[Rfam]
RNA: L19-Flavobacteria ribosomal protein leader
RNA sequence: UAACCUCUGGCGAUAGACGUGUAUGUUA
Dot-bracket structure: ((((...(.(((.....)))..).))))